Background: The family of this 67-nucleotide RNA from Gelria sp. Kuro-4 is "DUF3800-VIII RNA". NCBI's taxonomy places the organism under Bacteria, Clostridia, Thermoanaerobacterales, Thermoanaerobacteraceae, Gelria. The family's RNA type in Rfam is small RNA.

RNA sequence: AAGGCCCUGUCUGCUUCGAAGUCCCAAGUUUAUGUUUGGGAUACUCAUGUAGGAGCGAUGGGGCCUU
Numbered sequence: 001a002a003g004g005c006c007c008u009g010u011c012u013g014c015u016u017c018g019a020a021g022u023c024c025c026a027a028g029u030u031u032a033u034g035u036u037u038g039g040g041a042u043a044c045u046c047a048u049g050u051a052g053g054a055g056c057g058a059u060g061g062g063g064c065c066u067u
Stems, first nucleotide, its partner, number of pairs: 001067010012057006021042009